[Rfam]
Description:
A member of the RNA family "Plant signal recognition particle RNA" from Medicago truncatula, 357 nucleotides long. It scores 143 bits against the family's covariance model. The family's RNA type in Rfam is non-coding RNA gene. On this family, see Batey et al., J Mol Biol 2001: "Structural and energetic analysis of RNA recognition by a universally conserved protein from the signal recognition particle".
RNA sequence: GCCGAGUUGGAUAACAUCAGCUUGUAACUCGAGUGGAGGCAUUAAUGUGGUGGAACAUGGUUCAGGAUUCAUUGGGUUUGGCUUGAGGAUGCAAUUUCUGGCGUGCCCACUCCAAGUUGAGAGUUGAUUAACGGAGCCUGAGCGAAAGCCCAAUUUCAUUGGUUCUAGACAGAAGAGCACCGCGUGAGGCUGGCUUAAUAGAGUUAUUAGACUAUUAUGUGAAUAUCUCUAUAUUUACGAAUAUCAUUAUUGUAAAUUAAGUGUAAAUUUUUGGCUCCCAACAAUGGAGGGAUUACAGGCCGUCACACUUCUGGUCUAAUAUGCCUAGUGAGCCUAGCUACUUGAACCACCAGUUUA
Numbered sequence: 001g002c003c004g005a006g007u008u009g010g011a012u013a014a015c016a017u018c019a020g021c022u023u024g025u026a027a028c029u030c031g032a033g034u035g036g037a038g039g040c041a042u043u044a045a046u047g048u049g050g051u052g053g054a055a056c057a058u059g060g061u062u063c064a065g066g067a068u069u070c071a072u073u074g075g076g077u078u079u080g081g082c083u084u085g086a087g088g089a090u091g092c093a094a095u096u097u098c099u100g101g102c103g104u105g106c107c108c109a110c111u112c113c114a115a116g117u118u119g120a121g122a123g124u125u126g127a128u129u130a131a132c133g134g135a136g137c138c139u140g141a142g143c144g145a146a147a148g149c150c151c152a153a154u155u156u157c158a159u160u161g162g163u164u165c166u167a168g169a170c171a172g173a174a175g176a177g178c179a180c181c182g183c184g185u186g187a188g189g190c191u192g193g194c195u196u197a198a199u200a201g202a203g204u205u206a207u208u209a210g211a212c213u214a215u216u217a218u219g220u221g222a223a224u225a226u227c228u229c230u231a232u233a234u235u236u237a238c239g240a241a242u243a244u245c246a247u248u249a250u251u252g253u254a255a256a257u258u259a260a261g262u263g264u265a266a267a268u269u270u271u272u273g274g275c276u277c278c279c280a281a282c283a284a285u286g287g288a289g290g291g292a293u294u295a296c297a298g299g300c301c302g303u304c305a306c307a308c309u310u311c312u313g314g315u316c317u318a319a320u321a322u323g324c325c326u327a328g329u330g331a332g333c334c335u336a337g338c339u340a341c342u343u344g345a346a347c348c349a350c351c352a353g354u355u356u357a
Base pairs, nucleotide, nucleotide: 001040002039003038004023005022006021007020008019009018010017029036030035043357044356045355048352049351050350051349052348053347056344057343059341062337064335065334066333069331070330071329072328073327074326075325076324077323080316081315082314083313085311086310087309090307091306099302100301101300102299104297105296107291108290110289111288112287113286114285116282117281118280119279121277122276123275124274126164127163128162129161130160131159133157134156135155136154139152140151142149143148172272173271174270175269176268182264183263184262185261